[Rfam]
RNA sequence: AAACGUUUUAAAAUGAUGACGCAUAGUUCAGUUGAUCCAACUGUGAUAACUAACUUACUUAAAUUGAAAUUGGUCUUUCACCCCUACCUGACAAACGUUU
Dot-bracket structure: ...(((((....................................................................................)))))...
Shown here is a 100-nucleotide sequence from Anopheles darlingi, a member of the family "Small nucleolar RNA snR60/Z15/Z230/Z193/J17". The base pairs follow the family's consensus structure. A search with the family's covariance model found it, with a score of 50 bits. A reference for the family is Chen et al. (2003), "The high diversity of snoRNAs in plants: identification and comparative study of 120 snoRNA genes from Oryza sativa", Nucleic Acids Res. It is annotated as a C/D-box small nucleolar RNA.